[Rfam]
RNA sequence: UGCCUUUUGUGUUGCCCGUUCAUUUUUGGUUACUGAUGAAUGUGGUGUCAAAAAAGGCGCAAAUGAAACUCUUGGCAGCUCUGUUUCACCCUAGGUUUCCGUUCCUUUGGUGCUUUUGCUGCGAGGAACAUAU
Numbered sequence: 001u002g003c004c005u006u007u008u009g010u011g012u013u014g015c016c017c018g019u020u021c022a023u024u025u026u027u028g029g030u031u032a033c034u035g036a037u038g039a040a041u042g043u044g045g046u047g048u049c050a051a052a053a054a055a056g057g058c059g060c061a062a063a064u065g066a067a068a069c070u071c072u073u074g075g076c077a078g079c080u081c082u083g084u085u086u087c088a089c090c091c092u093a094g095g096u097u098u099c100c101g102u103u104c105c106u107u108u109g110g111u112g113c114u115u116u117u118g119c120u121g122c123g124a125g126g127a128a129c130a131u132a133u
Stems, first nucleotide, its partner, number of pairs: 002058006010050002013047004017042008070126003075122005089112001090110002094105002
Description
A member of the RNA family "Small nucleolar RNA SNORA13" from Ornithorhynchus anatinus, 133 nucleotides long. From the family's description: ACA13 is a member of the H/ACA class of snoRNA that guide the sites of modification of uridines to pseudouridines. Taxonomically the source falls in Ornithorhynchus (Eukaryota, Bilateria, Euteleostomi, Mammalia). Rfam links the family to the GO terms nucleolus and RNA processing. It is one of the family's seed sequences. The family's RNA type in Rfam is H/ACA-box small nucleolar RNA.